[Rfam]
Source information: The family of this 67-nucleotide sequence from Triticum turgidum is "Small nucleolar RNA Z105". It is annotated as a C/D-box small nucleolar RNA. Lineage of the source: Eukaryota > Streptophyta > Tracheophyta > Spermatophyta > Triticum turgidum.
RNA sequence: UUGGCAUGAUGAGGAAGACAAGUGUUGUCUGAUCUAUUUGAUGAUCAAAUCCUCCUACUCAUUCCGA
Numbered sequence: 001u002u003g004g005c006a007u008g009a010u011g012a013g014g015a016a017g018a019c020a021a022g023u024g025u026u027g028u029c030u031g032a033u034c035u036a037u038u039u040g041a042u043g044a045u046c047a048a049a050u051c052c053u054c055c056u057a058c059u060c061a062u063u064c065c066g067a
Stems, first nucleotide, its partner, number of pairs: 006062004025044002029040001
A reference for the family is Chen et al. (2003), "The high diversity of snoRNAs in plants: identification and comparative study of 120 snoRNA genes from Oryza sativa", Nucleic Acids Res. The base pairs follow the family's consensus structure, which was predicted with CMfinder.